[Rfam]
RNA: chrB-b RNA
RNA sequence: CGGGGUAAUGCAGACUCCCCAUCAGACGCUCGUCGUCCAAGCUCUGC
Numbered sequence: 001c002g003g004g005g006u007a008a009u010g011c012a013g014a015c016u017c018c019c020c021a022u023c024a025g026a027c028g029c030u031c032g033u034c035g036u037c038c039a040a041g042c043u044c045u046g047c
Base pairs, nucleotide, nucleotide: 002020003019004018005017010047011046012045013044014043025037026036027035028034